[Rfam]
RNA sequence: UCUUUACUGAGUAUAUGGGGGUAAAGCAGAAAGAUUCAACGGGAUAAGUAACAGAAAAUAAAAAAGGAGGCAAAAGCCUCCUUUUUUUCAACAUU
Numbered sequence: 001u002c003u004u005u006a007c008u009g010a011g012u013a014u015a016u017g018g019g020g021g022u023a024a025a026g027c028a029g030a031a032a033g034a035u036u037c038a039a040c041g042g043g044a045u046a047a048g049u050a051a052c053a054g055a056a057a058a059u060a061a062a063a064a065a066g067g068a069g070g071c072a073a074a075a076g077c078c079u080c081c082u083u084u085u086u087u088u089c090a091a092c093a094u095u
Stems, first nucleotide, its partner, number of pairs: 008038001010036003016031001020027001061086011
Rfam assigns this 95-nucleotide RNA from Photobacterium proteolyticum to the family "sraA".
Lineage of the source: Bacteria > Pseudomonadati > Pseudomonadota > Vibrionaceae > Photobacterium.
Rfam classes the family as a small RNA.
For this family Rfam cites "Novel small RNA-encoding genes in the intergenic regions of Escherichia coli" (Argaman et al., Curr Biol, 2001).